[Rfam]
RNA sequence: CGGAAGAAUCUGUCAAGCUCAGGAGGGAUAGCGCCUUUAGAUUCGGCAGCCGUCGGUCUCAAGCUUCCGGCGCUAUCCAUCCUGAGUUUUAUGGCUUCUUCUU
Numbered sequence: 001c002g003g004a005a006g007a008a009u010c011u012g013u014c015a016a017g018c019u020c021a022g023g024a025g026g027g028a029u030a031g032c033g034c035c036u037u038u039a040g041a042u043u044c045g046g047c048a049g050c051c052g053u054c055g056g057u058c059u060c061a062a063g064c065u066u067c068c069g070g071c072g073c074u075a076u077c078c079a080u081c082c083u084g085a086g087u088u089u090u091a092u093g094g095c096u097u098c099u100u101c102u103u
Stems, first nucleotide, its partner, number of pairs: 010094001016088009026078010